Rfam assigns this 190-nucleotide sequence from a Syntrophomonadaceae bacterium to the family "Lysine riboswitch aptamer".
Riboswitches are metabolite binding domains within certain messenger RNAs that serve as precision sensors for their corresponding targets. Allosteric rearrangement of mRNA structure is mediated by ligand binding, and this results in modulation of gene expression. This family includes riboswitches that sense lysine in a number of genes involved in lysine metabolism, including lysC.
Lineage of the source: Bacteria > Bacillati > Bacillota > Clostridia > Syntrophomonadaceae.

RNA sequence: AGGUGAGGUAGAGGAGCGGACCAUCAAGAUUAGCACGGAUUUAAUAAGCAGGGGUGCUUCCGUGUAAAAGGGGUGUCCGCCGAAGCUUAAAGGAAAAACCCCAAAAACCUUUAAGCUGGGCAUGCAUCUAAUAGGUGCAUGACUGUCAUUAAAAGGUAUCCCGGCCUUUUAAUGGAGCACUAUCUCACAA
Numbered sequence: 001a002g003g004u005g006a007g008g009u010a011g012a013g014g015a016g017c018g019g020a021c022c023a024u025c026a027a028g029a030u031u032a033g034c035a036c037g038g039a040u041u042u043a044a045u046a047a048g049c050a051g052g053g054g055u056g057c058u059u060c061c062g063u064g065u066a067a068a069a070g071g072g073g074u075g076u077c078c079g080c081c082g083a084a085g086c087u088u089a090a091a092g093g094a095a096a097a098a099c100c101c102c103a104a105a106a107a108c109c110u111u112u113a114a115g116c117u118g119g120g121c122a123u124g125c126a127u128c129u130a131a132u133a134g135g136u137g138c139a140u141g142a143c144u145g146u147c148a149u150u151a152a153a154a155g156g157u158a159u160c161c162c163g164g165c166c167u168u169u170u171a172a173u174g175g176a177g178c179a180c181u182a183u184c185u186c187a188c189a190a
Stems, first nucleotide, its partner, number of pairs: 006185006016080006023074003033065007084117010118144002121141008146175011
The match comes from Rfam's covariance-model search (104 bits).